[Rfam]
RNA sequence: UAUUAGGUUGGUGCACCAGUAAUUGCAGUUUUUGCCAUUGAAAGUAAUGGCAAAACCCACAAUUACUGGUGCACCAACCUGAUA
Numbered sequence: 001u002a003u004u005a006g007g008u009u010g011g012u013g014c015a016c017c018a019g020u021a022a023u024u025g026c027a028g029u030u031u032u033u034g035c036c037a038u039u040g041a042a043a044g045u046a047a048u049g050g051c052a053a054a055a056c057c058c059a060c061a062a063u064u065a066c067u068g069g070u071g072c073a074c075c076a077a078c079c080u081g082a083u084a
Stems, first nucleotide, its partner, number of pairs: 001084025028057001030055011
Shown here is an 84-nucleotide RNA from Colobus angolensis, a member of the family "mir-548 microRNA precursor family". The literature on the family includes a 2010 paper in BMC Biol by Witten et al., "Ultra-high throughput sequencing-based small RNA discovery and discrete statistical biomarker analysis in a collection of cervical tumours and matched controls". Taxonomically the source falls in Colobus angolensis (Eukaryota, Bilateria, Sarcopterygii, Mammalia). Gene Ontology terms of the family: miRNA-mediated post-transcriptional gene silencing and RISC complex. A search with the family's covariance model found it, with a score of 91 bits.